[Rfam]
Shown here is a 138-nucleotide RNA from Clostridium sp. CAG:7, a member of the family "Ribosomal protein L10 leader". Gene Ontology term of the family: regulation of gene expression.
RNA sequence: AUUAUGCGUGUUGAAUGCCCUGAGACAGCAGGUACCGUAAGGUGUAAGCUUAAAACGCCUGCCGAGGAACAUACAAAGCUCUAAUGAGAUUUUGCAUACCUCUCUGUCAUUGCGGCAGGGAGGUUUUUUUAUAAGAUC
Numbered sequence: 001a002u003u004a005u006g007c008g009u010g011u012u013g014a015a016u017g018c019c020c021u022g023a024g025a026c027a028g029c030a031g032g033u034a035c036c037g038u039a040a041g042g043u044g045u046a047a048g049c050u051u052a053a054a055a056c057g058c059c060u061g062c063c064g065a066g067g068a069a070c071a072u073a074c075a076a077a078g079c080u081c082u083a084a085u086g087a088g089a090u091u092u093u094g095c096a097u098a099c100c101u102c103u104c105u106g107u108c109a110u111u112g113c114g115g116c117a118g119g120g121a122g123g124u125u126u127u128u129u130u131a132u133a134a135g136a137u138c
Base pairs, nucleotide, nucleotide: 028062029061030060031059032058033057034043035042036041099123100122101121102120103119104118105117106116107115108114
From the family's description: This family is a putative r-protein leader autoregulatory structure found in B. subtilis and other low-GC Gram-positive bacteria. NCBI's taxonomy places the organism under Bacteria, Bacillati, Bacillota, Clostridiaceae, Clostridium.